[Rfam]
Rfam assigns this 155-nucleotide sequence from Blastocystis hominis to the family "U1 spliceosomal RNA". The organism belongs to Blastocystis hominis, within Eukaryota. It scores 91 bits against the family's covariance model. The family is grouped with related families in Rfam's "U1 clan".
RNA sequence: AUACUUACCUGGCGGGGAUUUGGCUGCGAUCAAGAAGGCGGCUGGUCUGGGACUGAGCAGGCCCUAGCACUCUGGUGCUGUGAGGUUCCAAUGGUCUUUCGGGAUCAAUACCGCACAAUUUUUGGGUUGGGGAGUUUGCGCUUGCGCAUCUCCUG
Dot-bracket structure: ...........(((((((((..(((((..........))))).)))))(((((...(.((.((..........))..)).)...))))).(((.((......)).)).).))))...............(((((..((((....)))).))))).